[Rfam]
RNA sequence: CAGCCUGAAAUGAUGACUCUCUUAAAUUUCAUGUCUCUUCUCCGACAUUUUUCUGUGGAGAUAGUUGCCUUAUUAAUCUGAUCAGGCUG
Numbered sequence: 001c002a003g004c005c006u007g008a009a010a011u012g013a014u015g016a017c018u019c020u021c022u023u024a025a026a027u028u029u030c031a032u033g034u035c036u037c038u039u040c041u042c043c044g045a046c047a048u049u050u051u052u053c054u055g056u057g058g059a060g061a062u063a064g065u066u067g068c069c070u071u072a073u074u075a076a077u078c079u080g081a082u083c084a085g086g087c088u089g
Base pairs, nucleotide, nucleotide: 001089002088003087004086005085
The record is an 89-nucleotide sequence from Prolemur simus, which matches "Small nucleolar RNA SNORD111" in Rfam.
Taxonomically the source falls in Prolemur (Eukaryota, Opisthokonta, Teleostomi, Boreoeutheria).
It scores 91 bits against the family's covariance model.
It is annotated as a C/D-box small nucleolar RNA.
The base pairs follow the family's consensus structure, which was predicted with RNAalifold.
Gene Ontology terms of the family: RNA processing and nucleolus.
For this family Rfam cites "Purified box C/D snoRNPs are able to reproduce site-specific 2'-O-methylation of target RNA in vitro" (Galardi et al., Mol Cell Biol, 2002).